Background:
Rfam assigns this 172-nucleotide sequence from Firmicutes bacterium CAG:129 to the family "Lysine riboswitch aptamer". Gene Ontology term of the family: lysine biosynthetic process.
RNA sequence: GAGCGAGAUAGAGGCGCGGCCGACAAGAGUACCGAGUCCGUACGGAGCAGAGAUCCGGGACAAAGGGAAAGGGGAAGCCGCCGAAGUGGGGAACGGUUCCUGUGCCGUUUUCUGCUGGCUCGUCGGAGAAGAUCCGCCGGACUGUCACAAUUUGUGGAGCGCUAUCGAAGAG
Numbered sequence: 001g002a003g004c005g006a007g008a009u010a011g012a013g014g015c016g017c018g019g020c021c022g023a024c025a026a027g028a029g030u031a032c033c034g035a036g037u038c039c040g041u042a043c044g045g046a047g048c049a050g051a052g053a054u055c056c057g058g059g060a061c062a063a064a065g066g067g068a069a070a071g072g073g074g075a076a077g078c079c080g081c082c083g084a085a086g087u088g089g090g091g092a093a094c095g096g097u098u099c100c101u102g103u104g105c106c107g108u109u110u111u112c113u114g115c116u117g118g119c120u121c122g123u124c125g126g127a128g129a130a131g132a133u134c135c136g137c138c139g140g141a142c143u144g145u146c147a148c149a150a151u152u153u154g155u156g157g158a159g160c161g162c163u164a165u166c167g168a169a170g171a172g
Stems, first nucleotide, its partner, number of pairs: 007166005016081005024073001032066002036061004085116012117143002120140003124136004145157005